[Rfam]
Shown here is an 84-nucleotide RNA sequence from Loxodonta africana, a member of the family "mir-15 microRNA precursor family". Gene Ontology terms of the family: RISC complex and miRNA-mediated post-transcriptional gene silencing. NCBI's taxonomy places the organism under Eukaryota, Gnathostomata, Sarcopterygii, Theria, Loxodonta. The literature on the family includes a 2001 paper in Science by Lagos-Quintana et al., "Identification of novel genes coding for small expressed RNAs". The family's consensus secondary structure was predicted with RNAalifold. Rfam describes the family as follows. This family represents the related mir-15a and mir-15b sequences. In humans miR-15a and miR-16 are clustered within 0.5 kb at 13q14. This region has been shown to be deleted in more than half of B cell chronic lymphocytic leukaemias (CLL). Both miR-15a and miR-16 are deleted or down-regulated in more than two thirds of CLL cases. The mature sequence is excised from the 5' arm of the hairpin.

RNA sequence: CCUUGGAGUAAAGUAGCAGCACAUAAUGGUUUGUGGAUUUUUGAAAAGGUGCAGGCCAUGUUGUGCUGCCUCAGAAAUACAAGG
Numbered sequence: 001c002c003u004u005g006g007a008g009u010a011a012a013g014u015a016g017c018a019g020c021a022c023a024u025a026a027u028g029g030u031u032u033g034u035g036g037a038u039u040u041u042u043g044a045a046a047a048g049g050u051g052c053a054g055g056c057c058a059u060g061u062u063g064u065g066c067u068g069c070c071u072c073a074g075a076a077a078u079a080c081a082a083g084g
Base pairs, nucleotide, nucleotide: 001084002083003082004081005080013072016069017068018067019066020065021064022063023062026059027058028057029056030055031054032053033052034051035050
Clan: mir-15 clan.